[Rfam]
RNA sequence: GCUGGAGUAGCUCAGAUGGUUAGAGCAUGUGGUUGUUAACUACAAAGUUGAAGGUUCAAUUCCUUCAUUUAGCG
Numbered sequence: 001g002c003u004g005g006a007g008u009a010g011c012u013c014a015g016a017u018g019g020u021u022a023g024a025g026c027a028u029g030u031g032g033u034u035g036u037u038a039a040c041u042a043c044a045a046a047g048u049u050g051a052a053g054g055u056u057c058a059a060u061u062c063c064u065u066c067a068u069u070u071a072g073c074g
Stems, first nucleotide, its partner, number of pairs: 001073006010026004028044005050066005